Annotation: This 69-nucleotide sequence from Rugosimonospora africana belongs to the Rfam family "Fluoride riboswitch aptamer (crcB RNA motif)". The family's consensus secondary structure is taken from published work.

[Rfam]
RNA sequence: UGGUGGUGAGGCGAUGGGGCUCGCCUAAUCCGAACCGCGGCCGCGGCCGCUGACGGUCCCUACAGCGAC
Numbered sequence: 001u002g003g004u005g006g007u008g009a010g011g012c013g014a015u016g017g018g019g020c021u022c023g024c025c026u027a028a029u030c031c032g033a034a035c036c037g038c039g040g041c042c043g044c045g046g047c048c049g050c051u052g053a054c055g056g057u058c059c060c061u062a063c064a065g066c067g068a069c
Base pairs, nucleotide, nucleotide: 010025011024012023013022016060017059018058019057020056021055037050038049039048040047